RNA sequence: CUAGAUUUGUAGCGAUACAUAUCGACGACAAAUAAGAAGUCAGCCGAGGGCAUAGUACUUUGUUUUUUUUCGCGAAGAACAAAAGAAGGCC
Numbered sequence: 001c002u003a004g005a006u007u008u009g010u011a012g013c014g015a016u017a018c019a020u021a022u023c024g025a026c027g028a029c030a031a032a033u034a035a036g037a038a039g040u041c042a043g044c045c046g047a048g049g050g051c052a053u054a055g056u057a058c059u060u061u062g063u064u065u066u067u068u069u070u071c072g073c074g075a076a077g078a079a080c081a082a083a084a085g086a087a088g089g090c091c
Stems, first nucleotide, its partner, number of pairs: 001027001004023003008019004040047002049091003059083010
RNA: Group II catalytic intron D1-D4-1
Organism: Marinibactrum halimedae